The family of this 239-nucleotide sequence from Bacillus manliponensis is "T-box leader". It scores 147 bits against the family's covariance model. From the family's description: Uncharged tRNA acts as the effector for transcription antitermination of genes in the T-box leader family. T-boxes are found upstream of many aminoacyl-tRNA synthetase genes and some amino acid biosynthetic genes usually in Gram-positive bacteria. The anticodon of a specific tRNA base pairs to a specifier sequence within the T-box motif, and the NCCA acceptor tail of the tRNA base pairs to a conserved bulge in the T-box antiterminator hairpin.

Nucleotides: 239
Stems, first nucleotide, its partner, number of pairs: 007104002015099004026088006039076003050073006106131007133144003184198006204236004215232005
Number, partner (000 for none) and nucleotide at each position: 001000a002000g003000a004000a005000a006000a007104u008103c009000g010000a011000u012000g013000a014000g015099u016098a017097a018096g019000a020000a021000g022000a023000g024000u025000a026088u027087g028086u029085a030084u031083a032000u033000a034000a035000u036000a037000g038000g039076c040075g041074c042000u043000u044000c045000a046000g047000a048000g049000a050073g051072c052071u053070g054069g055068g056000a057000u058000u059000a060000g061000g062000u063000g064000a065000g066000a067000g068055c069054c070053c071052a072051g073050u074041g075040c076039g077000a078000u079000a080000c081000g082000a083031u084030a085029u086028a087027c088026a089000g090000a091000a092000u093000g094000g095000g096018c097017u098016u099015a100000c101000g102000a103008g104007a105000g106131g107130u108129a109128u110127g111126c112125u113000g114000a115000a116000c117000g118000a119000a120000u121000a122000g123000u124000a125112g126111g127110u128109a129108u130107a131106c132000a133144c134143g135142g136000g137000u138000u139000c140000c141000g142135c143134c144133g145000u146000u147000a148000c149000a150000a151000g152000g153000a154000u155000a156000g157000g158000g159000u160000a161000u162000a163000a164000u165000a166000u167000u168000g169000u170000a171000c172000c173000u174000g175000a176000a177000c178000a179000a180000a181000g182000c183000g184198g185197g186196a187195u188194g189193c190000u191000a192000u193189g194188c195187a196186u197185c198184c199000a200000a201000u202000a203000a204236g205235a206234g207233g208000u209000g210000g211000u212000a213000c214000c215232g216231c217230g218229g219228u220000a221000a222000a223000a224000a225000u226000u227000u228219a229218u230217c231216g232215u233207c234206c235205u236204c237000u238000g239000c